[Rfam]
FMN riboswitch aptamer (RFN element): a 125-nucleotide RNA from Fusobacterium necrogenes. The match comes from Rfam's covariance-model search (109 bits). Taxonomically the source falls in Fusobacterium (Bacteria, Fusobacteriati, Fusobacteriota, Fusobacteriia). Rfam links the family to the GO term FMN binding. Pairs were carried over by alignment from the consensus structure, which is taken from published work.
RNA sequence: UUUUAUCUUCAGGGCAGGGUGAGGUAACAAUUCCCGACCGGUGGUUAUAGUCCACGAGAAUUUUUUAAUUCUGAUUUGGUGAAAUUCCAAAACCGACAGUAUAGUCUGGAUGGAAGAAGAAAAGA
Numbered sequence: 001u002u003u004u005a006u007c008u009u010c011a012g013g014g015c016a017g018g019g020u021g022a023g024g025u026a027a028c029a030a031u032u033c034c035c036g037a038c039c040g041g042u043g044g045u046u047a048u049a050g051u052c053c054a055c056g057a058g059a060a061u062u063u064u065u066u067a068a069u070u071c072u073g074a075u076u077u078g079g080u081g082a083a084a085u086u087c088c089a090a091a092a093c094c095g096a097c098a099g100u101a102u103a104g105u106c107u108g109g110a111u112g113g114a115a116g117a118a119g120a121a122a123a124g125a
Stems, first nucleotide, its partner, number of pairs: 003123002006120005017035003037105002039095002041055004050093002058071003075091005097108003